[Rfam]
Nucleotides: 071
Stems, first nucleotide, its partner, number of pairs: 002031007011022004039070003043066004048061005
Number, partner (000 for none) and nucleotide at each position: 001000g002031g003030c004029c005028g006027g007026a008025u009000a010000a011022g012021g013020c014019g015000u016000u017000c018000a019014c020013g021012c022011c023000g024000c025008a026007u027006c028005c029004g030003g031002c032000a033000a034000u035000c036000a037000g038000c039070g040069c041068c042000u043066g044065a045064u046063g047000u048061g049060a050059c051058g052057c053000u054000u055000a056000c057052g058051c059050g060049u061048c062000u063046u064045a065044u066043c067000c068041g069040g070039c071000a